Leucine operon leader: a 147-nucleotide RNA from Rahnella aquatilis. For this family Rfam cites "Attenuation in amino acid biosynthetic operons" (Kolter and Yanofsky, Annu Rev Genet, 1982). The family's consensus secondary structure is taken from published work. Taxonomically the source falls in Rahnella aquatilis (Bacteria, Pseudomonadati, Pseudomonadota, Gammaproteobacteria). By type it is a cis-regulatory leader.
RNA sequence: GAGAAGCUGAAAACACAUGUUCAUGAUGACCCGUCUCCUAGGCCUACUACUCAACGCAGAAUAUUUGCGCGGUAAGCCAGUGGGCGAAAAUCAGAACUGAUUCAACUUCCACAGACAAUAAACCCGCGCCGAUGCGCGGGUUUUUUU
Numbered sequence: 001g002a003g004a005a006g007c008u009g010a011a012a013a014c015a016c017a018u019g020u021u022c023a024u025g026a027u028g029a030c031c032c033g034u035c036u037c038c039u040a041g042g043c044c045u046a047c048u049a050c051u052c053a054a055c056g057c058a059g060a061a062u063a064u065u066u067g068c069g070c071g072g073u074a075a076g077c078c079a080g081u082g083g084g085c086g087a088a089a090a091u092c093a094g095a096a097c098u099g100a101u102u103c104a105a106c107u108u109c110c111a112c113a114g115a116c117a118a119u120a121a122a123c124c125c126g127c128g129c130c131g132a133u134g135c136g137c138g139g140g141u142u143u144u145u146u147u
Stems, first nucleotide, its partner, number of pairs: 004108001006106001008104003016099002019097004032086005038080002048074004055069004120143010
Dot-bracket structure: ...(.(.(((.....((.((((.........(((((.((........((((...((((.......)))).))))....)).))))).......))))))..))).).)...........((((((((((....))))))))))....